[Rfam]
RNA sequence: CCACUCGAACCCGUAGAUCCGAACUUGUGUGGGCCUAUGUCGCAAGCUCGAUUCUAUGGGUCCGGGUAGC
Dot-bracket structure: ..(((((..(((..(((..(((.((((((...........)))))).)))..)))..)))..)))))...
Rfam assigns this 70-nucleotide sequence from Cryptotermes secundus to the family "mir-10 microRNA precursor family". The base pairs follow the family's consensus structure, which was predicted with PFOLD. The literature on the family includes a 2001 paper in Cell by Ambros, "microRNAs: tiny regulators with great potential".